RNA sequence: UCAAAAACUUUAGCGCCAUGUACCCGGCCGCUUUUCAUCCCUCUGUAUUUUUGGAGGAACGUUUUGGCCCGGGUUGACGAGGUGUCAGGUGAUCGAAGAUUCGGCGGAUGCCUGAUCGCGGAUGCGGCCGCGCAUACAGUUGACAAAAGAUCCGGUAACGGAGAGACAAAGAGACUGUAACCGUAUGGA
Dot-bracket structure: .....................((((((.(....................................)..))))))..........(((((...((((....))))......))))).(((((......)))))..(((((((.........((((....))))..........)))))))..........
RNA: glmS glucosamine-6-phosphate activated ribozyme aptamer